[Rfam]
RNA sequence: GGAUCACGAGGGGGAGACCCCGGCAACCUGGGACGGACACCCAAGGUGCUCACACCGGAGACGGUGGAUCCGGCCCGAGAGGGCAACGAAGUCCGU
Numbered sequence: 001g002g003a004u005c006a007c008g009a010g011g012g013g014g015a016g017a018c019c020c021c022g023g024c025a026a027c028c029u030g031g032g033a034c035g036g037a038c039a040c041c042c043a044a045g046g047u048g049c050u051c052a053c054a055c056c057g058g059a060g061a062c063g064g065u066g067g068a069u070c071c072g073g074c075c076c077g078a079g080a081g082g083g084c085a086a087c088g089a090a091g092u093c094c095g096u
Base pairs, nucleotide, nucleotide: 001071002070003069004068005067010021011020012019013018022050023049024048027046028045029044030042031041032040036094073084074083075082076081